Description
The family of this 93-nucleotide RNA from Manihot esculenta is "Small nucleolar RNA snoR27".
RNA sequence: GUUGGAUCGAUGAUGUUCAGUAGAAACUGCGUUAUCUACCUGCAAUUUCUUGUUGGAAUUGAAGAUUUCUGUAAAAUUAUUCUGAGGUCCUAU
Numbered sequence: 001g002u003u004g005g006a007u008c009g010a011u012g013a014u015g016u017u018c019a020g021u022a023g024a025a026a027c028u029g030c031g032u033u034a035u036c037u038a039c040c041u042g043c044a045a046u047u048u049c050u051u052g053u054u055g056g057a058a059u060u061g062a063a064g065a066u067u068u069c070u071g072u073a074a075a076a077u078u079a080u081u082c083u084g085a086g087g088u089c090c091u092a093u
Stems, first nucleotide, its partner, number of pairs: 001093002004090004
The family's RNA type in Rfam is C/D-box small nucleolar RNA. Taxonomically the source falls in Manihot (Eukaryota, Streptophyta, Embryophyta, Magnoliopsida). The family's consensus secondary structure was predicted with WAR.